[Rfam]
RNA sequence: GACAAAGGGGUGGAGCUCCUUGAAGUCCAAUAGAGGGUCUUGCAGGGUAUAUAGAGCUGCUGAGCUAUGGAUCCCUAAAGCUCUAUCCCAUAUAUAUAACUUUUUAAGGAAGGGAUAGACUUUUGGCUUGCAUAUCUCAGGAGCUGCAUUACCAAAAAUGUCAGAUCGUUGUUUGGAUUGAAGGGAGCUCUACACUUAGUCACU
Numbered sequence: 001g002a003c004a005a006a007g008g009g010g011u012g013g014a015g016c017u018c019c020u021u022g023a024a025g026u027c028c029a030a031u032a033g034a035g036g037g038u039c040u041u042g043c044a045g046g047g048u049a050u051a052u053a054g055a056g057c058u059g060c061u062g063a064g065c066u067a068u069g070g071a072u073c074c075c076u077a078a079a080g081c082u083c084u085a086u087c088c089c090a091u092a093u094a095u096a097u098a099a100c101u102u103u104u105u106a107a108g109g110a111a112g113g114g115a116u117a118g119a120c121u122u123u124u125g126g127c128u129u130g131c132a133u134a135u136c137u138c139a140g141g142a143g144c145u146g147c148a149u150u151a152c153c154a155a156a157a158a159u160g161u162c163a164g165a166u167c168g169u170u171g172u173u174u175g176g177a178u179u180g181a182a183g184g185g186a187g188c189u190c191u192a193c194a195c196u197u198a199g200u201c202a203c204u
Base pairs, nucleotide, nucleotide: 013190014189015188016187017186018185019184020183024179025178026177027176028175029174036167057143058142060140061139062138066134067133068132069131074126
Dot-bracket structure: ............((((((((...((((((......(....................((.(((...((((....(...................................................)....))))...))).)).......................)......))))))...))))))))..............
Rfam assigns this 204-nucleotide RNA sequence from Gossypium stocksii to the family "MIR159 microRNA precursor family". The family has 66 seed sequences and 3,649 matches in Rfam 15.1. A reference for the family is Jones-Rhoades and Bartel (2004), "Computational identification of plant microRNAs and their targets, including a stress-induced miRNA", Mol Cell. Gene Ontology terms of the family: RISC complex and miRNA-mediated post-transcriptional gene silencing. It scores 113 bits against the family's covariance model.